[Rfam]
RNA sequence: CUCUAAUCUCUGAUCUUUGUCCAAGGUCAAGUUUAACAUCUGUUCAUAACAGUUAAAUAUCUUUUACAUCAUUAGCUUGAAGAUGUCAUAUUAAACAGACUUUUGGGGCCAAAGGGUGUGUUAGGACUUUUUCUGUCUGUCCAAUGCAUCUGCCUGCUACUGCAGUGUCUCUAGAAGCAGCACACCAA
Dot-bracket structure: ......(((..(((....)))..)))....................(((.((........)).))).(((.(((...))).))).............................(((((.(..((((....)))).).)))))...((..((.(.((...............))).))..)).......
Annotation: U2 spliceosomal RNA: a 188-nucleotide sequence from Erythrocercus mccallii. The source organism's lineage runs through Eukaryota, Amniota, Neognathae, Australaves and Erythrocercus. U2 is a small nuclear RNA (snRNA) component of the spliceosome (involved in pre-mRNA splicing). Complementary binding between U2 snRNA (in an area lying towards the 5' end but 3' to hairpin I) and the branchpoint sequence (BPS) of the intron results the bulging out of an unpaired adenosine, on the BPS, which initiates a nucleophilic attack at the intronic 5' splice site, thus starting the first of two transesterification reactions that mediate splicing. Its Rfam clan is "U2 clan".